Rfam assigns this 72-nucleotide RNA from Jaculus jaculus to the family "mir-153 microRNA precursor family". The source organism's lineage runs through Eukaryota, Craniata, Euteleostomi, Dipodoidea and Jaculus. On this family, see Tesfaye et al., Mol Reprod Dev 2009: "Identification and expression profiling of microRNAs during bovine oocyte maturation using heterologous approach".

RNA sequence: GCCAGCAUCAUUUUUGUGAUCUGCAGCUAGUACUCUCAUCCCAGUUGCAUAGUCACAAAAGUGGUCAUUGGC
Dot-bracket structure: .((((..(((((((((((((.(((((((..............)))))))..)))))))))))))...)))).
Numbered sequence: 001g002c003c004a005g006c007a008u009c010a011u012u013u014u015u016g017u018g019a020u021c022u023g024c025a026g027c028u029a030g031u032a033c034u035c036u037c038a039u040c041c042c043a044g045u046u047g048c049a050u051a052g053u054c055a056c057a058a059a060a061g062u063g064g065u066c067a068u069u070g071g072c
Stems, first nucleotide, its partner, number of pairs: 002071004008064013022049007
Rfam 15.1 lists 1,565 matches to the family in 711 species.